Overview: Rfam assigns this 173-nucleotide sequence from Vagococcus elongatus to the family "Lysine riboswitch aptamer". Rfam describes the family as follows. Riboswitches are metabolite binding domains within certain messenger RNAs that serve as precision sensors for their corresponding targets. Allosteric rearrangement of mRNA structure is mediated by ligand binding, and this results in modulation of gene expression. This family includes riboswitches that sense lysine in a number of genes involved in lysine metabolism, including lysC. It scores 80 bits against the family's covariance model. NCBI's taxonomy places the organism under Bacteria, Bacillati, Bacilli, Enterococcaceae, Vagococcus.

RNA sequence: AUUUCAUAAAGAGGUUGCAGUGUAAAUGAGUAAGGUAUGGGAGAAGGCAUUUGUUGAUCAUACCCGAAAGGUAAUCACUGCCGAACGAGGCUUUAUCGGCAGAUAAGAAUCGUGGGGGUAUGGGGAAGACCUAUAUCACUCCUACUUGUAUAAGUAGAGGCGCUGAAUCAUAA
Numbered sequence: 001a002u003u004u005c006a007u008a009a010a011g012a013g014g015u016u017g018c019a020g021u022g023u024a025a026a027u028g029a030g031u032a033a034g035g036u037a038u039g040g041g042a043g044a045a046g047g048c049a050u051u052u053g054u055u056g057a058u059c060a061u062a063c064c065c066g067a068a069a070g071g072u073a074a075u076c077a078c079u080g081c082c083g084a085a086c087g088a089g090g091c092u093u094u095a096u097c098g099g100c101a102g103a104u105a106a107g108a109a110u111c112g113u114g115g116g117g118g119u120a121u122g123g124g125g126a127a128g129a130c131c132u133a134u135a136u137c138a139c140u141c142c143u144a145c146u147u148g149u150a151u152a153a154g155u156a157g158a159g160g161c162g163c164u165g166a167a168u169c170a171u172a173a
Stems, first nucleotide, its partner, number of pairs: 006168002010164002017081006023074001025072001034064007085113004091107003096102001114140002117137008142157006